[Rfam]
Nucleotides: 093
Stems, first nucleotide, its partner, number of pairs: 001092007010026004028064005069085005
Number, partner (000 for none) and nucleotide at each position: 001092g002091g003090c004089u005088c006087a007086g008000u009000g010026g011025u012024g013023c014000a015000g016000c017000u018000g019000g020000u021000a022000a023013g024012c025011a026010u027000a028064c029063u030062c031061g032060a033000u034000u035000u036000a037000u038000u039000g040000a041000a042000c043000c044000a045000u046000u047000g048000a049000a050000g051000a052000a053000a054000a055000g056000c057000u058000u059000u060032u061031c062030g063029a064028g065000a066000g067000a068000c069085g070084g071083a072082g073081g074000u075000u076000c077000a078000a079000a080000u081073c082072c083071u084070c085069u086007c087006u088005g089004g090003g091002c092001u093000a
The family of this 93-nucleotide RNA from Tetrahymena thermophila is "tRNA". The base pairs follow the family's consensus structure, which is taken from published work. Its family is annotated with triplet codon-amino acid adaptor activity in the Gene Ontology. The family's RNA type in Rfam is transfer RNA. The organism belongs to Tetrahymena thermophila, within Eukaryota. About the family: Transfer RNA (tRNA) molecules are approximately 80 nucleotides in length.